A member of the RNA family "MIR5565 microRNA precursor family" from Miscanthus lutarioriparius, 108 nucleotides long. It scores 82 bits against the family's covariance model. NCBI's taxonomy places the organism under Eukaryota, Streptophyta, Mesangiospermae, commelinids, Miscanthus. Its family is annotated with miRNA-mediated post-transcriptional gene silencing and RISC complex in the Gene Ontology. The family's consensus secondary structure was predicted with RNAalifold.
[Rfam]
RNA sequence: GCACGUGUAUCUAUCUCAAUCCACAUGUGUUGGAGUGGAAUGGAAUGGAAUUUAAUUUAAUUCUAUUCUAAUCUAUUUCAACAUAUGUGGAUUGAGACGAAUACAUGC
Numbered sequence: 001g002c003a004c005g006u007g008u009a010u011c012u013a014u015c016u017c018a019a020u021c022c023a024c025a026u027g028u029g030u031u032g033g034a035g036u037g038g039a040a041u042g043g044a045a046u047g048g049a050a051u052u053u054a055a056u057u058u059a060a061u062u063c064u065a066u067u068c069u070a071a072u073c074u075a076u077u078u079c080a081a082c083a084u085a086u087g088u089g090g091a092u093u094g095a096g097a098c099g100a101a102u103a104c105a106u107g108c
Stems, first nucleotide, its partner, number of pairs: 004107007012099001014097001016095017035076005041070003045066003